[Rfam]
RNA sequence: CACCUAGUCCGAGGCUCCGGGAGUCACCGGAGUCUGGUGCAAAAGGGA
Numbered sequence: 001c002a003c004c005u006a007g008u009c010c011g012a013g014g015c016u017c018c019g020g021g022a023g024u025c026a027c028c029g030g031a032g033u034c035u036g037g038u039g040c041a042a043a044a045g046g047g048a
Stems, first nucleotide, its partner, number of pairs: 013034008
raiA-hairpin RNA: a 48-nucleotide RNA sequence. It is annotated as a small RNA.